[Rfam]
RNA sequence: GGCCGCUUGGCGCAAUGGUAGCGCGUCUGACUACGAUUUGGUUCUUGGGCUUGUACGAGCAUGAGACAGAAAGUCGUCAUCAGGAGGUCGCAGGUUCGACCCCUGCAGUGGUCA
Numbered sequence: 001g002g003c004c005g006c007u008u009g010g011c012g013c014a015a016u017g018g019u020a021g022c023g024c025g026u027c028u029g030a031c032u033a034c035g036a037u038u039u040g041g042u043u044c045u046u047g048g049g050c051u052u053g054u055a056c057g058a059g060c061a062u063g064a065g066a067c068a069g070a071a072a073g074u075c076g077u078c079a080u081c082a083g084g085a086g087g088u089c090g091c092a093g094g095u096u097c098g099a100c101c102c103c104u105g106c107a108g109u110g111g112u113c114a
Stems, first nucleotide, its partner, number of pairs: 001113007010024004026084005090106005
RNA: tRNA